[Rfam]
RNA: DUF805b RNA
RNA sequence: ACGGAGUGUGCCGAAAAUCCGAUCAUAGAGUAGGCA
Number, nucleotide and partner (000 for none) at each position: 001a000002c021003g020004g019005a018006g000007u000008g000009u000010g035011c034012c033013g000014a000015a000016a000017a000018u005019c004020c003021g002022a000023u000024c000025a000026u000027a000028g000029a000030g000031u000032a000033g012034g011035c010036a000